[Rfam]
RNA sequence: UCGAGGACGACCUCAAAAUCACCCUUUCGGCCGGGACGACCCGG
Numbered sequence: 001u002c003g004a005g006g007a008c009g010a011c012c013u014c015a016a017a018a019u020c021a022c023c024c025u026u027u028c029g030g031c032c033g034g035g036a037c038g039a040c041c042c043g044g
Base pairs, nucleotide, nucleotide: 001016003014004013005012006011031044032043033042034041035040
RNA: Guanidine-II riboswitch aptamer (mini-ykkC)